MIR6274 microRNA precursor family: a 105-nucleotide RNA from Prunus persica.

[Rfam]
RNA sequence: AGAUAUUACUUUUUGGUAUUCUCGAUUAAUAACACAAUAACACUUAAGAUAAUUUUUUUACGUGUCAUUGUGUUAUUGACCGUGAAUAGCAAAAUAAUGGUAUUC
Numbered sequence: 001a002g003a004u005a006u007u008a009c010u011u012u013u014u015g016g017u018a019u020u021c022u023c024g025a026u027u028a029a030u031a032a033c034a035c036a037a038u039a040a041c042a043c044u045u046a047a048g049a050u051a052a053u054u055u056u057u058u059u060a061c062g063u064g065u066c067a068u069u070g071u072g073u074u075a076u077u078g079a080c081c082g083u084g085a086a087u088a089g090c091a092a093a094a095u096a097a098u099g100g101u102a103u104u105c
Stems, first nucleotide, its partner, number of pairs: 002104004011094005017088003021084001023082002026079013040065004045060005

The family has 2 seed sequences and 342 matches in Rfam 15.1.